A member of the RNA family "Small nucleolar RNA snoR27" from Paspalum vaginatum, 91 nucleotides long.
RNA sequence: UCUGGAUCGAUGAUGCAACUUUUAUCUGCGUUAUCUUUCUGCAUCCUUUAAUUGAAGGGGCUGAGGAAUACGUUACCUGCUGAGAUCCAUA
Numbered sequence: 001u002c003u004g005g006a007u008c009g010a011u012g013a014u015g016c017a018a019c020u021u022u023u024a025u026c027u028g029c030g031u032u033a034u035c036u037u038u039c040u041g042c043a044u045c046c047u048u049u050a051a052u053u054g055a056a057g058g059g060g061c062u063g064a065g066g067a068a069u070a071c072g073u074u075a076c077c078u079g080c081u082g083a084g085a086u087c088c089a090u091a
Stems, first nucleotide, its partner, number of pairs: 001091001003089005
Pairs were carried over by alignment from the consensus structure, which was predicted with WAR. Rfam links the family to the GO terms nucleolus and RNA processing. The family's RNA type in Rfam is C/D-box small nucleolar RNA.